[Rfam]
RNA sequence: CGGAGUUUUUGCAUCAACAGUGUUUGGACGGAACUUG
Numbered sequence: 001c002g003g004a005g006u007u008u009u010u011g012c013a014u015c016a017a018c019a020g021u022g023u024u025u026g027g028a029c030g031g032a033a034c035u036u037g
Stems, first nucleotide, its partner, number of pairs: 001037003005034005011029001014027004018022001
Dot-bracket structure: (((.(((((.(..(((((...).)))).)))))))))

Shown here is a 37-nucleotide RNA sequence from Danionella cerebrum, a member of the family "Iron response element I". It is annotated as a cis-regulatory element. Its family is annotated with response to iron ion in the Gene Ontology. It scores 38 bits against the family's covariance model.